[Rfam]
RNA sequence: AAGCUGCCCGCAUGUGUCGCUGACGUUGUCAGCACCAUGCCAGCAGCAAGGAUCCUCCGGCUGCGCAGGGAAUCCCCUCCCUGAGAUCCACCAGUCCGCCAUCGCAUCGGUCCGCGGAUGAACGCCAUUCAGGCGUCGAUGC
Number, nucleotide and partner (000 for none) at each position: 001a000002a000003g000004c000005u000006g000007c000008c000009c000010g000011c039012a038013u037014g036015u000016g000017u000018c000019g033020c032021u031022g030023a029024c028025g000026u000027u000028g024029u023030c022031a021032g020033c019034a000035c000036c014037a013038u012039g011040c000041c000042a000043g064044c063045a062046g061047c060048a000049a000050g000051g088052a087053u086054c085055c000056u000057c000058c000059g000060g047061c046062u045063g044064c043065g000066c083067a082068g081069g080070g079071a078072a000073u000074c000075c000076c000077c000078u071079c070080c069081c068082u067083g066084a000085g054086a053087u052088c051089c000090a000091c000092c000093a000094g000095u000096c000097c000098g000099c000100c000101a000102u000103c000104g000105c000106a000107u000108c000109g000110g000111u000112c000113c000114g142115c141116g140117g000118a000119u000120g000121a000122a136123c135124g134125c133126c132127a000128u000129u000130c000131a000132g126133g125134c124135g123136u122137c000138g000139a000140u116141g115142c114
radC RNA: a 142-nucleotide RNA from Achromobacter sp. AONIH1.
NCBI's taxonomy places the organism under Bacteria, Betaproteobacteria, Burkholderiales, Alcaligenaceae, Achromobacter.
The family's RNA type in Rfam is cis-regulatory element.
A search with the family's covariance model found it, with a score of 80 bits.